[Rfam]
RNA sequence: GUGGGCUGGGGAAGGGCUGCUGGGUGAUACCAGCCAGCCUCACCCGCGCCCGAGAGCAGCUCCCAGGUGGGCUCCGUGCUGGGCCUCACCUGUGCAGUAACAGGUGUGAACAUCCAUGAAGCAUUUUGAUGGUCAUGUAUGAUACUGCAAACAACA
Dot-bracket structure: ..((((.(((....((((((((.((...)))))).))))...)))..))))..........(((..(((.....)))...))).......(.(((((((.((....(((.((((...((....))..)))).)))....)).))))))).).....
Numbered sequence: 001g002u003g004g005g006c007u008g009g010g011g012a013a014g015g016g017c018u019g020c021u022g023g024g025u026g027a028u029a030c031c032a033g034c035c036a037g038c039c040u041c042a043c044c045c046g047c048g049c050c051c052g053a054g055a056g057c058a059g060c061u062c063c064c065a066g067g068u069g070g071g072c073u074c075c076g077u078g079c080u081g082g083g084c085c086u087c088a089c090c091u092g093u094g095c096a097g098u099a100a101c102a103g104g105u106g107u108g109a110a111c112a113u114c115c116a117u118g119a120a121g122c123a124u125u126u127u128g129a130u131g132g133u134c135a136u137g138u139a140u141g142a143u144a145c146u147g148c149a150a151a152c153a154a155c156a
Stems, first nucleotide, its partner, number of pairs: 003051004008045003015039004019034004024030002062083003067077003091151001093149007101141002107135003111131004118125002

Shown here is a 156-nucleotide RNA from Eulacestoma nigropectus, a member of the family "Small Cajal body specific RNA 16".
The source organism's lineage runs through Eukaryota, Dipnotetrapodomorpha, Archelosauria, Coelurosauria and Eulacestoma.
It is annotated as a small Cajal body RNA.
A search with the family's covariance model found it, with a score of 114 bits.
Rfam's curators write: scaRNAs are a specific class of small nuclear RNAs which localise to the Cajal bodies and guide the modification of RNA polymerase II transcribed spliceosomal RNAs U1, U2, U4, U5 and U12.